Description: Shown here is a 109-nucleotide sequence from Zemynaea arenosa, a member of the family "Glycine riboswitch aptamer". Clan: Glycine riboswitch clan. This family represents the bacterial glycine riboswitch.
RNA sequence: CAGUCUUGAUCGGGAGAGCCCUGCCCACCUUCGCCCCCCGGCGAACACCGCGCAGGCGCCGAAGGGGCAACACCCAAAAACUCUCAGGCAAAAGGACCGGUCAGGGGCC
Numbered sequence: 001c002a003g004u005c006u007u008g009a010u011c012g013g014g015a016g017a018g019c020c021c022u023g024c025c026c027a028c029c030u031u032c033g034c035c036c037c038c039c040g041g042c043g044a045a046c047a048c049c050g051c052g053c054a055g056g057c058g059c060c061g062a063a064g065g066g067g068c069a070a071c072a073c074c075c076a077a078a079a080a081c082u083c084u085c086a087g088g089c090a091a092a093a094g095g096a097c098c099g100g101u102c103a104g105g106g107g108c109c
Stems, first nucleotide, its partner, number of pairs: 006104008020056004058089003061085002065083003

Annotation:
Taxonomically the source falls in Zemynaea (Bacteria, Pseudomonadota, Betaproteobacteria, Oxalobacteraceae).